Background: The record is a 203-nucleotide RNA sequence from Merops nubicus, which matches "Small nucleolar RNA SNORA74" in Rfam. NCBI's taxonomy places the organism under Eukaryota, Opisthokonta, Sarcopterygii, Neognathae, Merops. It scores 106 bits against the family's covariance model. Rfam classes the family as an H/ACA-box small nucleolar RNA.
RNA sequence: UCCAGUGGUAGUCAGCUGUCCAGAGCAGUACUGUGCCUGUGAUAGUGUUACACUGCUGGGAGAUAAGGAUCAGUCAUUCCUUCUGGCUGCUGCUGUCCCCGUUCUGGAGACAGCUGAUGUCCCAAGGAAGUGACACCCUGCUUCCCUGAGAGCGCACUGAAGAGUUCCUUUCCCUCUUUAGUGCUAGUCUGGAAGCAUACAGA
Number, nucleotide and partner (000 for none) at each position: 001u060002c059003c058004a057005g056006u055007g054008g053009u052010a000011g051012u050013c000014a000015g046016c045017u044018g043019u042020c041021c039022a038023g037024a000025g000026c000027a000028g000029u000030a000031c000032u000033g000034u000035g000036c000037c023038u022039g021040u000041g020042a019043u018044a017045g016046u015047g000048u000049u000050a012051c011052a009053c008054u007055g006056c005057u004058g003059g002060g001061a000062g000063a000064u000065a000066a000067g000068g136069a000070u000071c000072a000073g134074u133075c132076a131077u000078u000079c000080c000081u000082u126083c000084u124085g123086g122087c119088u000089g000090c116091u000092g114093c000094u112095g111096u110097c109098c000099c107100c106101g000102u000103u000104c000105u000106g100107g099108a000109g097110a096111c095112a094113g000114c092115u000116g090117a000118u000119g087120u000121c000122c086123c085124a084125a000126g082127g000128a000129a000130g000131u076132g075133a074134c073135a000136c068137c000138c000139u197140g196141c195142u194143u193144c192145c191146c000147u000148g000149a000150g000151a000152g000153c000154g184155c183156a182157c000158u180159g179160a178161a177162g176163a175164g174165u000166u000167c000168c000169u000170u000171u000172c000173c000174c164175u163176c162177u161178u160179u159180a158181g000182u156183g155184c154185u000186a000187g000188u000189c000190u000191g145192g144193a143194a142195g141196c140197a139198u000199a000200c000201a000202g000203a000
A reference for the family is Bortolin and Kiss (1998), "Human U19 intron-encoded snoRNA is processed from a long primary transcript that possesses little potential for protein coding", RNA.